About this RNA:
A member of the RNA family "Small nucleolar RNA SNORA70" from Balaenoptera musculus, 132 nucleotides long. Taxonomically the source falls in Balaenoptera (Eukaryota, Opisthokonta, Whippomorpha, Cetacea). It scores 59 bits against the family's covariance model. snoRNA U70 seems to be exclusive to mammals and is a member of the H/ACA class of snoRNA which contain H (ANANNA) and ACA box motifs. H/ACA box snoRNAs are involved in the conversion of uridines to pseudouridines (5-ribosyluracil) a constituent of structural RNAs (transfer, ribosomal, small nuclear, and small nucleolar). Pairs were carried over by alignment from the consensus structure, which was predicted with PFOLD. It is annotated as an H/ACA-box small nucleolar RNA.
[Rfam]
RNA sequence: CUGAAAAUGCAGCCCUACCCUGUACUCUAGCUACUGCAGUUACAGGUAUUUAACUAGAUGAUUUUAGCUUCCUCAGUAGUGUAUGCAGCCUGUUGCCUAUACGGGUUGCCCUAAGGGACCUUGGAGACAGCC
Dot-bracket structure: .((((...........(((....(((...........)))....))).)))).......................((........((((((...........)))))).........)).............